[Rfam]
RNA sequence: CCGUGCUAGACGGGGAGGUAGCGGUGCCCUGUAACCCGCAAUCCGCUGUAGCGGGGUUGAACGCCUUCAUGAGGUAUUGCGAUGUAGGGGUUGGGUUUUAAAGCUGGUGUUGAGAGUCGGGUCCUCCGCAAUGGAUGCUCGUGAAUCUGGUCAGGUCCGGAAGGAAGCAGCCAUAAGCGUGAUGUUUCAUGUGCCGGAGGGUGGCCUAACUUGAGCUGGCGAUAAAAAUUCCACCUGGAUCGUACUAUCGAGGUUGGUGCACGG
Dot-bracket structure: ((((((..(((((((.(.(...).).))))....(((((...........)))))))).....((..(.(..((((..(((((.((((...((..(((((..((.(((.....((((.((((((((((((.((((..(.(((.....((((....(((....)))....))))...))).)....))))))...))))))...)))).))))..))).))..)))))....)))))).)))))..)))).).)..)).))))))
The record is a 264-nucleotide sequence from Paenibacillus sp. UNCCL117, which matches "Bacterial large signal recognition particle RNA" in Rfam. Rfam classes the family as a non-coding RNA gene. Rfam's curators write: The signal recognition particle (SRP) is a universally conserved ribonucleoprotein involved in the co-translational targeting of proteins to membranes. Taxonomically the source falls in Paenibacillus (Bacteria, Bacillati, Bacilli, Caryophanales). Its family is annotated with signal recognition particle, plasma membrane targeting and SRP-dependent cotranslational protein targeting to membrane, signal sequence recognition in the Gene Ontology. The base pairs follow the family's consensus structure, which is taken from published work.